[Rfam]
RNA sequence: GCGAGGCUGCCGCCUAAUCGCCUGACCGGGCGAAUCGGGGAACCGUGUUCGUGGGGUGAAUCCGCAGUAAGCGGUAGGGGCCACUUCCGCCCCGAACCCGUCAGCUAACCCGAUCGGCGGCCGACGGAAGGAAGG
Numbered sequence: 001g002c003g004a005g006g007c008u009g010c011c012g013c014c015u016a017a018u019c020g021c022c023u024g025a026c027c028g029g030g031c032g033a034a035u036c037g038g039g040g041a042a043c044c045g046u047g048u049u050c051g052u053g054g055g056g057u058g059a060a061u062c063c064g065c066a067g068u069a070a071g072c073g074g075u076a077g078g079g080g081c082c083a084c085u086u087c088c089g090c091c092c093c094g095a096a097c098c099c100g101u102c103a104g105c106u107a108a109c110c111c112g113a114u115c116g117g118c119g120g121c122c123g124a125c126g127g128a129a130g131g132a133a134g135g
Stems, first nucleotide, its partner, number of pairs: 011119004018033005034114006044053002054099003062074004077093004
Rfam assigns this 135-nucleotide RNA sequence from Micromonospora polyrhachis to the family "c-di-AMP riboswitch aptamer (ydaO/yuaA leader)".